RNA sequence: CAGGAAUUACCCUUCUCGAUGUUCCGUGUUUCUGAAACACAUGAUUUCGUGGAAGUUCUGACUUG
Numbered sequence: 001c002a003g004g005a006a007u008u009a010c011c012c013u014u015c016u017c018g019a020u021g022u023u024c025c026g027u028g029u030u031u032c033u034g035a036a037a038c039a040c041a042u043g044a045u046u047u048c049g050u051g052g053a054a055g056u057u058c059u060g061a062c063u064u065g
Stems, first nucleotide, its partner, number of pairs: 001065004

Shown here is a 65-nucleotide RNA sequence from Gavia stellata, a member of the family "Small nucleolar RNA SNORD18".
Pairs were carried over by alignment from the consensus structure, which was predicted with PFOLD.
Rfam links the family to the GO terms nucleolus and RNA processing.